The family of this 35-nucleotide RNA from Myotis myotis is "Iron response element I". Gene Ontology term of the family: response to iron ion. The family has 62 seed sequences and 6,829 matches in Rfam 15.1. Rfam classes the family as a cis-regulatory element. NCBI's taxonomy places the organism under Eukaryota, Deuterostomia, Theria, Laurasiatheria, Myotis.
[Rfam]
RNA sequence: CUGUGACUUGCUUCAACAGUGUUUGGGUGGAACAG
Numbered sequence: 001c002u003g004u005g006a007c008u009u010g011c012u013u014c015a016a017c018a019g020u021g022u023u024u025g026g027g028u029g030g031a032a033c034a035g
Stems, first nucleotide, its partner, number of pairs: 001035004007030002010028001012027005017021001